[Rfam]
RNA sequence: UCCGGGGGAAGCUCACCGCCGAGGCCACUCACGGGGUGCGCGUCACUCCACGGCCCCGCCUCGGGGAAGGUCUGAGGGAAGGGCCGCCCGCGGCUCUAGCAGAGCCCGGCCCGCGAGGGGCGGGUGAGCCACCAGCAAGGCGGGGGGCACCGCGCUACACCGGGCACGGCGUGGGCAGGAGAAGCCGAGCAGGUUCCCGUGGGCGGGGAUUUCACCCUCACGGAACCCCGGCGGAUGCCCGUGGCCCCGCGGUGCUUUGAGACAGACUCACGGCCGGCCACGGUUGAGUCCAAUGGGUGAGGUGGGGCACUGCCCUAUAACCCAAUUCAGACUACUCUCCCCCGGA
Numbered sequence: 001u002c003c004g005g006g007g008g009a010a011g012c013u014c015a016c017c018g019c020c021g022a023g024g025c026c027a028c029u030c031a032c033g034g035g036g037u038g039c040g041c042g043u044c045a046c047u048c049c050a051c052g053g054c055c056c057c058g059c060c061u062c063g064g065g066g067a068a069g070g071u072c073u074g075a076g077g078g079a080a081g082g083g084c085c086g087c088c089c090g091c092g093g094c095u096c097u098a099g100c101a102g103a104g105c106c107c108g109g110c111c112c113g114c115g116a117g118g119g120g121c122g123g124g125u126g127a128g129c130c131a132c133c134a135g136c137a138a139g140g141c142g143g144g145g146g147g148c149a150c151c152g153c154g155c156u157a158c159a160c161c162g163g164g165c166a167c168g169g170c171g172u173g174g175g176c177a178g179g180a181g182a183a184g185c186c187g188a189g190c191a192g193g194u195u196c197c198c199g200u201g202g203g204c205g206g207g208g209a210u211u212u213c214a215c216c217c218u219c220a221c222g223g224a225a226c227c228c229c230g231g232c233g234g235a236u237g238c239c240c241g242u243g244g245c246c247c248c249g250c251g252g253u254g255c256u257u258u259g260a261g262a263c264a265g266a267c268u269c270a271c272g273g274c275c276g277g278c279c280a281c282g283g284u285u286g287a288g289u290c291c292a293a294u295g296g297g298u299g300a301g302g303u304g305g306g307g308c309a310c311u312g313c314c315c316u317a318u319a320a321c322c323c324a325a326u327u328c329a330g331a332c333u334a335c336u337c338u339c340c341c342c343c344g345g346a
Base pairs, nucleotide, nucleotide: 001346002345003344004343007340008339009338012301013300014299015298016297017296020063021062022061023060024059034048035047036046037045038044072330073329074328075327076326082275083274084273085272092106093105094104095103096102107123109121110120111119112118124271125270126269127268128267130265144256145255302318303317304316305315306314307313308312
Rfam assigns this 346-nucleotide RNA sequence from Nyctibius bracteatus to the family "Nuclear RNase P". On this family, see Brown, Nucleic Acids Res 1999: "The Ribonuclease P Database". Pairs were carried over by alignment from the consensus structure, which is taken from published work. From the family's description: Ribonuclease P (RNase P) is a ubiquitous endoribonuclease, found in archaea, bacteria and eukarya as well as chloroplasts and mitochondria.